[Rfam]
Notes:
The family of this 109-nucleotide sequence from Mitsuaria sp. WAJ17 is "Glycine riboswitch aptamer". On this family, see Mandal et al., Science 2004: "A glycine-dependent riboswitch that uses cooperative binding to control gene expression". Lineage of the source: Bacteria > Pseudomonadati > Burkholderiales > Sphaerotilaceae > Roseateles. About the family: This family represents the bacterial glycine riboswitch.
RNA sequence: ACGUUCCUCACUGGAGAGAGGCGGGUCUUGAACCCGCCCACCGAAGGGGCAAGCUGCGGGCGAUUCGCUGGCGGCCAAUCUCUCAGGUAAAGCGGACAGCGAGGGCAGC
Numbered sequence: 001a002c003g004u005u006c007c008u009c010a011c012u013g014g015a016g017a018g019a020g021g022c023g024g025g026u027c028u029u030g031a032a033c034c035c036g037c038c039c040a041c042c043g044a045a046g047g048g049g050c051a052a053g054c055u056g057c058g059g060g061c062g063a064u065u066c067g068c069u070g071g072c073g074g075c076c077a078a079u080c081u082c083u084c085a086g087g088u089a090a091a092g093c094g095g096a097c098a099g100c101g102a103g104g105g106c107a108g109c
Stems, first nucleotide, its partner, number of pairs: 006104004011099003020038004040088003043084002047082003053075005